Small nucleolar RNA SNORD53/SNORD92: an 81-nucleotide sequence from Xenopus laevis. Pairs were carried over by alignment from the consensus structure.
Nucleotides: 081
Stems, first nucleotide, its partner, number of pairs: 001081004
Number, partner (000 for none) and nucleotide at each position: 001081a002080u003079a004078c005000g006000g007000u008000g009000a010000u011000g012000a013000u014000g015000c016000c017000a018000a019000a020000c021000a022000c023000u024000g025000u026000g027000g028000u029000u030000u031000c032000a033000a034000c035000u036000c037000a038000c039000u040000g041000a042000u043000u044000u045000u046000a047000g048000g049000u050000g051000a052000a053000g054000a055000c056000u057000c058000c059000u060000u061000a062000c063000c064000u065000u066000g067000g068000c069000u070000g071000u072000g073000u074000c075000u076000g077000a078004g079003u080002a081001u
Clan: SNORD52 clan.
NCBI's taxonomy places the organism under Eukaryota, Eumetazoa, Euteleostomi, Dipnotetrapodomorpha, Xenopus.
It scores 59 bits against the family's covariance model.
Gene Ontology terms of the family: nucleolus and RNA processing.
A reference for the family is Kiss-Laszlo et al. (1996), "Site-specific ribose methylation of preribosomal RNA: a novel function for small nucleolar RNAs", Cell.